[Rfam]
RNA sequence: AAUUGAAAUUGUGCUUCACCGUAGAAAGCAGGUGCCCCUCCUGGGGCUUAAUAUCCCGCCGAGGUGGAGACCGGAAGUGUGUGAAAGCGGCUACCUUUGAGGUAGUUUCCAGGUCUUUGCCCGGCGCCCUGCAGGCAAAGACCUUUAUUUUUGUGGAA
Numbered sequence: 001a002a003u004u005g006a007a008a009u010u011g012u013g014c015u016u017c018a019c020c021g022u023a024g025a026a027a028g029c030a031g032g033u034g035c036c037c038c039u040c041c042u043g044g045g046g047c048u049u050a051a052u053a054u055c056c057c058g059c060c061g062a063g064g065u066g067g068a069g070a071c072c073g074g075a076a077g078u079g080u081g082u083g084a085a086a087g088c089g090g091c092u093a094c095c096u097u098u099g100a101g102g103u104a105g106u107u108u109c110c111a112g113g114u115c116u117u118u119g120c121c122c123g124g125c126g127c128c129c130u131g132c133a134g135g136c137a138a139a140g141a142c143c144u145u146u147a148u149u150u151u152u153g154u155g156g157a158a
Base pairs, nucleotide, nucleotide: 028059029058031056032055034047035046036045112143113142114141115140116139117138118137119136120135121134
Dot-bracket structure: ...........................((.((.(((........))).......)).))....................................................((((((((((............))))))))))...............
Shown here is a 158-nucleotide RNA sequence from Thermanaerothrix daxensis, a member of the family "Ribosomal protein L10 leader". Taxonomically the source falls in Thermanaerothrix (Bacteria, Bacillati, Anaerolineae, Anaerolineales). For this family Rfam cites "Diverse mechanisms for regulating ribosomal protein synthesis in Escherichia coli" (Zengel and Lindahl, Prog Nucleic Acid Res Mol Biol, 1994). The family's consensus secondary structure was predicted with CMfinder. This family is a putative r-protein leader autoregulatory structure found in B. subtilis and other low-GC Gram-positive bacteria. It is located in the 5' untranslated regions of mRNAs encoding ribosomal proteins L10 and L12 (rplJ-rplL). A Rho-independent transcription terminator structure that is probably involved in regulation is included at the 3' end.